[Rfam]
RNA sequence: GAACGUUGAAGUAACGUGAAUACGGAUCGGACCGCGGGGCAGUACCGCGCAUCUCCACCAUGAGUACAUAAUGUGUAUUUUUGAUGGGGAUGAACAAGGAUCGACGGACGGGAUAGCAGAGUGGAGUUCAUCGGGUGAUCGCGCAUAGAUCAAUUAAACUAAAUGCAAAUGAAAAUUUCGCACCAUCUGGUUAUGCUCUAGCAGCAUAA
Numbered sequence: 001g002a003a004c005g006u007u008g009a010a011g012u013a014a015c016g017u018g019a020a021u022a023c024g025g026a027u028c029g030g031a032c033c034g035c036g037g038g039g040c041a042g043u044a045c046c047g048c049g050c051a052u053c054u055c056c057a058c059c060a061u062g063a064g065u066a067c068a069u070a071a072u073g074u075g076u077a078u079u080u081u082u083g084a085u086g087g088g089g090a091u092g093a094a095c096a097a098g099g100a101u102c103g104a105c106g107g108a109c110g111g112g113a114u115a116g117c118a119g120a121g122u123g124g125a126g127u128u129c130a131u132c133g134g135g136u137g138a139u140c141g142c143g144c145a146u147a148g149a150u151c152a153a154u155u156a157a158a159c160u161a162a163a164u165g166c167a168a169a170u171g172a173a174a175a176u177u178u179c180g181c182a183c184c185a186u187c188u189g190g191u192u193a194u195g196c197u198c199u200a201g202c203a204g205c206a207u208a209a
Stems, first nucleotide, its partner, number of pairs: 001128002011122002023110002027107003033049005050092007132141003